[Rfam]
A member of the RNA family "PreQ1 (pre queuosine) riboswitch aptamer" from Caviibacterium pharyngocola, 45 nucleotides long. Lineage of the source: Bacteria > Pseudomonadati > Pseudomonadota > Pasteurellaceae > Caviibacterium. From the family's description: This family is a bacterial riboswitch that binds to the metabolite preQ1, an intermediate in the biosynthesis of the modified nucleoside queuosine from GTP. One example of this riboswitch is located in the leader of the Bacillus subtilis ykvJKLM (queCDEF) operon which encodes four genes necessary for queuosine production. PreQ1 binding to the riboswitch aptamer is thought to induce premature transcription termination within the leader to down-regulate expression of these genes. The match comes from Rfam's covariance-model search (50 bits).
RNA sequence: UAUUCCGUGGUUCGUAACCCUCCCACGCUAAAAAACUAGGAAACC
Numbered sequence: 001u002a003u004u005c006c007g008u009g010g011u012u013c014g015u016a017a018c019c020c021u022c023c024c025a026c027g028c029u030a031a032a033a034a035a036c037u038a039g040g041a042a043a044c045c
Stems, first nucleotide, its partner, number of pairs: 006027005015038002